[Rfam]
RNA sequence: UUGACCGCGAAAAACAAGGCUCGUAUAAUCUUCCGAUCGGGGAAGAGUUUCUACAAACCACCGUAAAUGGUUUACUAUGGGCGGAAUAUUUUUUCUC
Numbered sequence: 001u002u003g004a005c006c007g008c009g010a011a012a013a014a015c016a017a018g019g020c021u022c023g024u025a026u027a028a029u030c031u032u033c034c035g036a037u038c039g040g041g042g043a044a045g046a047g048u049u050u051c052u053a054c055a056a057a058c059c060a061c062c063g064u065a066a067a068u069g070g071u072u073u074a075c076u077a078u079g080g081g082c083g084g085a086a087u088a089u090u091u092u093u094u095c096u097c
Stems, first nucleotide, its partner, number of pairs: 019082007029046006055073006
Dot-bracket structure: ..................(((((((...((((((......))))))........((((((.......))))))..)))))))...............
Shown here is a 97-nucleotide RNA from Spirochaeta isovalerica, a member of the family "Purine riboswitch aptamer". The source organism's lineage runs through Bacteria, Pseudomonadati, Spirochaetota, Spirochaetales and Spirochaeta. Pairs were carried over by alignment from the consensus structure, which is taken from published work.